[Rfam]
mir-92 microRNA precursor family: a 77-nucleotide RNA sequence from Gasterosteus aculeatus.
Gene Ontology terms of the family: RISC complex and miRNA-mediated post-transcriptional gene silencing.
RNA sequence: CUUCCUGUGCAGGUGGGGAUUAGUAGCAAUGCUGUGUACCAGAAGGUAUUGCACUUGUCCCGGCCUGUAUAGGAAAA
Numbered sequence: 001c002u003u004c005c006u007g008u009g010c011a012g013g014u015g016g017g018g019a020u021u022a023g024u025a026g027c028a029a030u031g032c033u034g035u036g037u038a039c040c041a042g043a044a045g046g047u048a049u050u051g052c053a054c055u056u057g058u059c060c061c062g063g064c065c066u067g068u069a070u071a072g073g074a075a076a077a
Base pairs, nucleotide, nucleotide: 004073005072006071009068010067011066012065013064014063016061017060018059019058020057022055023054024053026052027051028050029049030048031047032046033045
Lineage of the source: Eukaryota > Craniata > Neoteleostei > Acanthomorphata > Gasterosteus. It is one of the family's seed sequences. On this family, see Houbaviy et al., Dev Cell 2003: "Embryonic stem cell-specific MicroRNAs". The base pairs follow the family's consensus structure, which was predicted with PFOLD.